[Rfam]
RNA sequence: CCAGGGGUUGAAACCCCUGGCUAUUACCGGACGCCCCGUUGGGGCG
Numbered sequence: 001c002c003a004g005g006g007g008u009u010g011a012a013a014c015c016c017c018u019g020g021c022u023a024u025u026a027c028c029g030g031a032c033g034c035c036c037c038g039u040u041g042g043g044g045c046g
Stems, first nucleotide, its partner, number of pairs: 001020008033045005
RNA: Acido-Lenti-1 RNA